[Rfam]
RNA sequence: UGGGCAUAUUUUUUCUACCAGAUAUAGCGAAUUAAUGUGAGCCAUUUUAAACUAUGUUUUUCGGCGUUGAGGCGUGCCCUGGCGGCAACGUCCGCACGAAAAUAAGGCUGUAAACCGCAAUGUGUGCGAAUUAUUGGCAAAAGGCAACCGCAGGCUGCCUUUUUCUUU
Numbered sequence: 001u002g003g004g005c006a007u008a009u010u011u012u013u014u015c016u017a018c019c020a021g022a023u024a025u026a027g028c029g030a031a032u033u034a035a036u037g038u039g040a041g042c043c044a045u046u047u048u049a050a051a052c053u054a055u056g057u058u059u060u061u062c063g064g065c066g067u068u069g070a071g072g073c074g075u076g077c078c079c080u081g082g083c084g085g086c087a088a089c090g091u092c093c094g095c096a097c098g099a100a101a102a103u104a105a106g107g108c109u110g111u112a113a114a115c116c117g118c119a120a121u122g123u124g125u126g127c128g129a130a131u132u133a134u135u136g137g138c139a140a141a142a143g144g145c146a147a148c149c150g151c152a153g154g155c156u157g158c159c160u161u162u163u164u165c166u167u168u
Stems, first nucleotide, its partner, number of pairs: 019037002060100004069095001071093001073090002075087004110134004116128004139163008148154002
The record is a 168-nucleotide RNA from Citrobacter rodentium, which matches "SraB RNA" in Rfam. This RNA was discovered in E. coli during a large scale screen. Pairs were carried over by alignment from the consensus structure, which was predicted with PFOLD. A reference for the family is Argaman et al. (2001), "Novel small RNA-encoding genes in the intergenic regions of Escherichia coli", Curr Biol. By type it is a small RNA. The match comes from Rfam's covariance-model search (148 bits). The organism belongs to Citrobacter rodentium, within Bacteria.